[Rfam]
RNA sequence: GCAGGGAGUGGAGAGCUCAUCUACACUGCAAAACUGAGAGGAUAUGAAGGUGACUUCGAUUGCUAAUUCAUGGAUACCCUCUGCUUGCGAGUGAAAUUAAGAUCUGACAUACUGCAUCUUUGCUAAAGUGAUGUUCUUGCACGUCGAGGGUUUGCAUGACAUAGGAAUCGAGGUGGCCUUCAUCCUUUUGGAUUGGAGUGAAGGGAGCUCUGCAUCUUUGCCUG
Number, nucleotide and partner (000 for none) at each position: 001g000002c000003a000004g000005g000006g000007a000008g000009u000010g000011g000012a000013g210014a209015g208016c207017u206018c205019a000020u204021c203022u000023a000024c200025a199026c198027u197028g000029c195030a194031a000032a000033a000034c000035u000036g000037a187038g000039a000040g000041g000042a000043u000044a000045u000046g000047a000048a000049g000050g000051u000052g000053a000054c000055u000056u000057c000058g000059a000060u167061u166062g000063c164064u163065a162066a000067u000068u000069c158070a157071u156072g155073g000074a000075u000076a000077c150078c149079c148080u147081c146082u000083g000084c000085u000086u000087g000088c000089g000090a000091g000092u000093g000094a000095a000096a000097u000098u000099a000100a000101g000102a000103u000104c000105u000106g000107a000108c000109a000110u000111a000112c000113u000114g000115c000116a000117u000118c000119u000120u000121u000122g000123c000124u000125a000126a000127a000128g000129u000130g000131a000132u000133g000134u000135u000136c000137u000138u000139g000140c000141a000142c000143g000144u000145c000146g081147a080148g079149g078150g077151u000152u000153u000154g000155c072156a071157u070158g069159a000160c000161a000162u065163a064164g063165g000166a061167a060168u000169c000170g000171a000172g000173g000174u000175g000176g000177c000178c000179u000180u000181c000182a000183u000184c000185c000186u000187u037188u000189u000190g000191g000192a000193u000194u030195g029196g000197a027198g026199u025200g024201a000202a000203g021204g020205g018206a017207g016208c015209u014210c013211u000212g000213c000214a000215u000216c000217u000218u000219u000220g000221c000222c000223u000224g000
This 224-nucleotide RNA sequence from Punica granatum belongs to the Rfam family "MIR159 microRNA precursor family". The organism belongs to Punica, within Eukaryota. Gene Ontology terms of the family: RISC complex and miRNA-mediated post-transcriptional gene silencing.